This 49-nucleotide sequence from Chinchilla lanigera belongs to the Rfam family "KRAS 3' UTR cis-regulatory element".
NCBI's taxonomy places the organism under Eukaryota, Chordata, Teleostomi, Sarcopterygii, Chinchilla.
About the family: AU-rich 49 nt fragment in KRAS 3'UTR. Its sequence but not the secondary is necessary and sufficient for reporter repression in HeLa cells.
The base pairs follow the family's consensus structure, which was predicted with RNAfold.
RNA sequence: CAAAAAUACUAUAUUUUUUCUAUAAAAAGGGAAAAAUAGAAAAAAAAAA
Numbered sequence: 001c002a003a004a005a006a007u008a009c010u011a012u013a014u015u016u017u018u019u020c021u022a023u024a025a026a027a028a029g030g031g032a033a034a035a036a037u038a039g040a041a042a043a044a045a046a047a048a049a
Stems, first nucleotide, its partner, number of pairs: 014045010